Rfam assigns this 75-nucleotide RNA sequence from Alligator sinensis to the family "Mammalian CPEB3 ribozyme".
RNA sequence: UGUUGCAAACUUGAAGCCAUAGCAGAAGUGCUCAUGACGUGGCCUGUCAGAUUCCAACAAAUCUGCAAUUAUGCU
Numbered sequence: 001u002g003u004u005g006c007a008a009a010c011u012u013g014a015a016g017c018c019a020u021a022g023c024a025g026a027a028g029u030g031c032u033c034a035u036g037a038c039g040u041g042g043c044c045u046g047u048c049a050g051a052u053u054c055c056a057a058c059a060a061a062u063c064u065g066c067a068a069u070u071a072u073g074c075u
Stems, first nucleotide, its partner, number of pairs: 013044001016043003021075004026070002028040003048065006
Background
The base pairs follow the family's consensus structure, which is taken from published work.